[Rfam]
RNA sequence: AUGCCUUAAACUAAUGAGUAAGGAAAAUAACAGUCCGGGGUGACGCCCGGGUCCUCGCCGCCUUGUGCGAGAGGUGUUUUUGAGCGGGUAAAGGUCCCCCUGCAGGUGACCCGCCUACUUUGUGGGAAGCCGCAGCACAGUGAUCUGCCCG
Numbered sequence: 001a002u003g004c005c006u007u008a009a010a011c012u013a014a015u016g017a018g019u020a021a022g023g024a025a026a027a028u029a030a031c032a033g034u035c036c037g038g039g040g041u042g043a044c045g046c047c048c049g050g051g052u053c054c055u056c057g058c059c060g061c062c063u064u065g066u067g068c069g070a071g072a073g074g075u076g077u078u079u080u081u082g083a084g085c086g087g088g089u090a091a092a093g094g095u096c097c098c099c100c101u102g103c104a105g106g107u108g109a110c111c112c113g114c115c116u117a118c119u120u121u122g123u124g125g126g127a128a129g130c131c132g133c134a135g136c137a138c139a140g141u142g143a144u145c146u147g148c149c150c151g
Stems, first nucleotide, its partner, number of pairs: 004023005033052007054071005085151005092146005098140001101135001105131003110126005